The family of this 75-nucleotide RNA from Cavia porcellus is "tRNA". The family's consensus secondary structure is taken from published work. The match comes from Rfam's covariance-model search (51 bits). Rfam's curators write: Transfer RNA (tRNA) molecules are approximately 80 nucleotides in length.
RNA sequence: GUUAAGGUGGCAGAGCCCAGUAAUUGCAUAAAACUUAAAACUUUACUCUCAGAGGUUCAACUCCUCUCCUUAACA
Numbered sequence: 001g002u003u004a005a006g007g008u009g010g011c012a013g014a015g016c017c018c019a020g021u022a023a024u025u026g027c028a029u030a031a032a033a034c035u036u037a038a039a040a041c042u043u044u045a046c047u048c049u050c051a052g053a054g055g056u057u058c059a060a061c062u063c064c065u066c067u068c069c070u071u072a073a074c075a
Base pairs, nucleotide, nucleotide: 001074002073003072004071005070006069007068010027011026012025013024029045030044031043032042051067052066053065054064055063
Dot-bracket structure: (((((((..((((..........)))).((((.........)))).....(((((.......)))))))))))).